[Rfam]
RNA sequence: AACAAUUUGUCCCGCGUCCCACGGUGUUUUAAAAAAGUCCCUAUAUAGGACUUUUUUAAAACGCCGUGGGACGUGGACAAAUUGUUAA
Numbered sequence: 001a002a003c004a005a006u007u008u009g010u011c012c013c014g015c016g017u018c019c020c021a022c023g024g025u026g027u028u029u030u031a032a033a034a035a036a037g038u039c040c041c042u043a044u045a046u047a048g049g050a051c052u053u054u055u056u057u058a059a060a061a062c063g064c065c066g067u068g069g070g071a072c073g074u075g076g077a078c079a080a081a082u083u084g085u086u087a088a
Base pairs, nucleotide, nucleotide: 001086002085003084004083005082006081007080008079009078010077011076013075014074015073016072017071018070019069020068021067022066023065024064025063026062027061028060029059030058031057032056033055034054035053